[Rfam]
RNA sequence: CGCUGCGCCACGGGGUGUGCCACGCACUGAGAUCCUCCACUGAGGGAACCCGUUGAACCUGAUCCGGUUAAUACCGGCGUAGGAAUGGCGCGCCCAGGCUCC
Numbered sequence: 001c002g003c004u005g006c007g008c009c010a011c012g013g014g015g016u017g018u019g020c021c022a023c024g025c026a027c028u029g030a031g032a033u034c035c036u037c038c039a040c041u042g043a044g045g046g047a048a049c050c051c052g053u054u055g056a057a058c059c060u061g062a063u064c065c066g067g068u069u070a071a072u073a074c075c076g077g078c079g080u081a082g083g084a085a086u087g088g089c090g091c092g093c094c095c096a097g098g099c100u101c102c
Stems, first nucleotide, its partner, number of pairs: 006090005011052004016046001017027004034045004058083004064077004

The family of this 102-nucleotide RNA sequence from Ferrimonas balearica is "TPP riboswitch aptamer (THI element)". Taxonomically the source falls in Ferrimonas balearica (Bacteria, Pseudomonadati, Alteromonadales, Ferrimonadaceae). Rfam 15.1 lists 16,130 matches to the family in 8,693 species.